[Rfam]
RNA sequence: AUGUUAUCAAGAAAGGUGGAGGGAUUAGACCCUAUGAAGCCUUAGCAACCCUUUAGAUGUCCUGUUAUCAAUUUAGGAUCUUAAAGAAGGUGCUAAAUUCUACCCCGUCUUAAGCUUAUUUUUAGGAUUUUACGGAUAGAUAACCC
Number, nucleotide and partner (000 for none) at each position: 001a000002u000003g144004u143005u142006a141007u140008c139009a000010a000011g000012a000013a043014a042015g041016g040017u039018g000019g000020a000021g032022g031023g030024a000025u000026u102027a101028g100029a099030c023031c022032c021033u000034a000035u000036g000037a000038a000039g017040c016041c015042u014043u013044a094045g093046c092047a091048a000049c090050c089051c086052u085053u084054u083055a082056g081057a000058u000059g000060u000061c000062c000063u000064g000065u000066u000067a000068u000069c000070a000071a000072u000073u000074u000075a000076g000077g000078a000079u000080c000081u056082u055083a054084a053085a052086g051087a000088a000089g050090g049091u047092g046093c045094u044095a000096a000097a000098u138099u029100c028101u027102a026103c135104c134105c000106c000107g000108u000109c000110u000111u000112a000113a000114g000115c000116u000117u000118a000119u000120u000121u000122u000123u000124a000125g000126g000127a000128u000129u000130u000131u000132a000133c000134g104135g103136a000137u000138a098139g008140a007141u006142a005143a004144c003145c000146c000
Annotation
Rfam assigns this 146-nucleotide sequence from Snuella sedimenti to the family "SAM riboswitch aptamer (S box leader)". About the family: The SAM riboswitch is found upstream of a number of genes which code for proteins involved in methionine or cysteine biosynthesis in Gram-positive bacteria. The SAM riboswitch acts at the level of transcription termination control. NCBI's taxonomy places the organism under Bacteria, Pseudomonadati, Bacteroidota, Flavobacteriales, Snuella. It scores 67 bits against the family's covariance model.